sRNA-Xcc1: a 93-nucleotide RNA sequence. The family has 74 seed sequences and 421 matches in Rfam 15.1. A reference for the family is Chen et al. (2011), "sRNA-Xcc1, an integron-encoded transposon- and plasmid-transferred trans-acting sRNA, is under the positive control of the key virulence regulators HrpG and HrpX of Xanthomonas campestris pathovar campestris", RNA Biol.
RNA sequence: GGUCGGGUAGCGAGCAGAACAUACAACACCCUUGUUUAAGGGAAAAACUGCUGGCCGUCUACUUGCGGUGUUGAAGUACCUGACCGCCCUCUC
Numbered sequence: 001g002g003u004c005g006g007g008u009a010g011c012g013a014g015c016a017g018a019a020c021a022u023a024c025a026a027c028a029c030c031c032u033u034g035u036u037u038a039a040g041g042g043a044a045a046a047a048c049u050g051c052u053g054g055c056c057g058u059c060u061a062c063u064u065g066c067g068g069u070g071u072u073g074a075a076g077u078a079c080c081u082g083a084c085c086g087c088c089c090u091c092u093c
Base pairs, nucleotide, nucleotide: 001085002084003083004082005081006080007079008078009077013052014051015050016049029042030041031040032039033038054069055068056067057066058065

By type it is a small RNA.